[Rfam]
RNA sequence: AGAGGCCCUCUGUGGCCAGGGUGGAACGCUUGCCUUGUCACCACGGUGACGAAGCAAGCAUUCCGCUAGGCCACUCACACUGCCCGC
Numbered sequence: 001a002g003a004g005g006c007c008c009u010c011u012g013u014g015g016c017c018a019g020g021g022u023g024g025a026a027c028g029c030u031u032g033c034c035u036u037g038u039c040a041c042c043a044c045g046g047u048g049a050c051g052a053a054g055c056a057a058g059c060a061u062u063c064c065g066c067u068a069g070g071c072c073a074c075u076c077a078c079a080c081u082g083c084c085c086g087c
Base pairs, nucleotide, nucleotide: 004084005083006082012074013073014072015071016070017069020067021066022065023064024063025062026061028059029058030057031056032055033054037050038049039048040047041046